Rfam assigns this 166-nucleotide sequence from Salsuginibacillus halophilus to the family "M-box riboswitch aptamer (ykoK leader)". Taxonomically the source falls in Salsuginibacillus (Bacteria, Bacillati, Bacillota, Bacillaceae). From the family's description: M-box riboswitch, also know as ykoK leader is described as a metaloregulatory RNA that sense divalent metals and function as a genetic control element of genes related to divalent metal transport in bacteria.
[Rfam]
RNA sequence: AUACGCCUUCGUUAGGUGAGGCUCCUGUGUAGGAGAUAUGCUGCUGCCCAGAAAUGUCCAAAGACGCCAAUGGGUUUAACAGAGGUCAUCGAGAUAAGGUGGCAUCUAACGCAGUUGGAUUCGAUCCUAUCCGCACAGUGUCAAAGCUCUACGAAUGGAGGGUACC
Numbered sequence: 001a002u003a004c005g006c007c008u009u010c011g012u013u014a015g016g017u018g019a020g021g022c023u024c025c026u027g028u029g030u031a032g033g034a035g036a037u038a039u040g041c042u043g044c045u046g047c048c049c050a051g052a053a054a055u056g057u058c059c060a061a062a063g064a065c066g067c068c069a070a071u072g073g074g075u076u077u078a079a080c081a082g083a084g085g086u087c088a089u090c091g092a093g094a095u096a097a098g099g100u101g102g103c104a105u106c107u108a109a110c111g112c113a114g115u116u117g118g119a120u121u122c123g124a125u126c127c128u129a130u131c132c133g134c135a136c137a138g139u140g141u142c143a144a145a146g147c148u149c150u151a152c153g154a155a156u157g158g159a160g161g162g163u164a165c166c
Base pairs, nucleotide, nucleotide: 006161007160008159009158010157011152012151013097015148016147017146020142021141022140025138026137027136028135029134030133032132033131040115041114042113043112044111046075047074048073049072050071055066056065057064058063082106083105085103088100089099090098117127118126119125